[Rfam]
Shown here is a 128-nucleotide sequence from Albidovulum inexpectatum, a member of the family "TPP riboswitch aptamer (THI element)".
RNA sequence: CCGGUGUGUCAGGGGAGUCCCGCCAAGGGGACUGAGAGGCUGACGGGGUUCCCACGCGGAGCCCGGCGAAGCGACCCUUUGAACCUGACCCAGUUGAUACUGGCGUAGGAAGACCGGGAGGAUUUCCG
Numbered sequence: 001c002c003g004g005u006g007u008g009u010c011a012g013g014g015g016a017g018u019c020c021c022g023c024c025a026a027g028g029g030g031a032c033u034g035a036g037a038g039g040c041u042g043a044c045g046g047g048g049u050u051c052c053c054a055c056g057c058g059g060a061g062c063c064c065g066g067c068g069a070a071g072c073g074a075c076c077c078u079u080u081g082a083a084c085c086u087g088a089c090c091c092a093g094u095u096g097a098u099a100c101u102g103g104c105g106u107a108g109g110a111a112g113a114c115c116g117g118g119a120g121g122a123u124u125u126c127c128g
Stems, first nucleotide, its partner, number of pairs: 008114003011078004017032005039072003084109004090103004
Rfam describes the family as follows. Vitamin B(1) in its active form thiamin pyrophosphate (TPP) is an essential coenzyme that is synthesised by coupling of pyrimidine and thiazole moieties in bacteria. The organism belongs to Albidovulum, within Bacteria. The match comes from Rfam's covariance-model search (56 bits). The base pairs follow the family's consensus structure, which is taken from published work.